[Rfam]
This 176-nucleotide RNA from Leucoagaricus sp. SymC.cos belongs to the Rfam family "small nucleolar RNA snR35". Clan: SNORA13 clan. NCBI's taxonomy places the organism under Eukaryota, Fungi, Dikarya, Agaricales, Leucoagaricus. For this family Rfam cites "Identification and functional analysis of 20 Box H/ACA small nucleolar RNAs (snoRNAs) from Schizosaccharomyces pombe" (Li et al., J Biol Chem, 2005). The base pairs follow the family's consensus structure, which was predicted with RNAalifold. Rfam links the family to the GO terms nucleolus and RNA processing.
RNA sequence: CUCGUGCGGCGGCACGGUCAUGCCAUUUCCCCAUGUUGCUCAUGACUGCAUGGUCUUCAGGCCCUUCACGCGGUUGUUUCGAGCGUCAGGCCGUGCCCUGAGCAAAUCGGACGUCUUAGCACCCUCUUCUUCUGUGCUCUUAUCGUGCCGAGGAUGGGUCGGUGGUUCGUACAAAU
Numbered sequence: 001c002u003c004g005u006g007c008g009g010c011g012g013c014a015c016g017g018u019c020a021u022g023c024c025a026u027u028u029c030c031c032c033a034u035g036u037u038g039c040u041c042a043u044g045a046c047u048g049c050a051u052g053g054u055c056u057u058c059a060g061g062c063c064c065u066u067c068a069c070g071c072g073g074u075u076g077u078u079u080c081g082a083g084c085g086u087c088a089g090g091c092c093g094u095g096c097c098c099u100g101a102g103c104a105a106a107u108c109g110g111a112c113g114u115c116u117u118a119g120c121a122c123c124c125u126c127u128u129c130u131u132c133u134g135u136g137c138u139c140u141u142a143u144c145g146u147g148c149c150g151a152g153g154a155u156g157g158g159u160c161g162g163u164g165g166u167u168c169g170u171a172c173a174a175a176u
Stems, first nucleotide, its partner, number of pairs: 022097001024095003038084004045074004108169005125157002128154005134149001136148002
Dot-bracket structure: .....................(.(((...........((((...((((......................))))......))))........))).)..........(((((............((.(((((.(.((.........)))))))).)).......))))).......